[Rfam]
This 88-nucleotide sequence from Cupriavidus necator belongs to the Rfam family "Glycine riboswitch aptamer".

RNA sequence: CGCAUCCGACCGGGAGAGCGCGCAUCGCCUGCGCCGCCGAAGGGGUAUCACCCGAAAACUCUCAGGCACCACGGACCGAUCGGAUCGG
Number, nucleotide and partner (000 for none) at each position: 001c000002g000003c000004a000005u000006c083007c082008g081009a080010c000011c078012g077013g076014g000015a000016g000017a000018g000019c000020g034021c033022g032023c031024a000025u000026c000027g000028c000029c000030u000031g023032c022033g021034c020035c000036g067037c066038c065039g063040a062041a000042g000043g061044g060045g059046u000047a000048u000049c054050a000051c000052c000053c000054g049055a000056a000057a000058a000059c045060u044061c043062u040063c039064a000065g038066g037067c036068a000069c000070c000071a000072c000073g000074g000075a000076c013077c012078g011079a000080u009081c008082g007083g006084a000085u000086c000087g000088g000
It scores 56 bits against the family's covariance model. Taxonomically the source falls in Cupriavidus necator (Bacteria, Pseudomonadota, Betaproteobacteria, Burkholderiales). The pairing is the family consensus, mapped onto this sequence.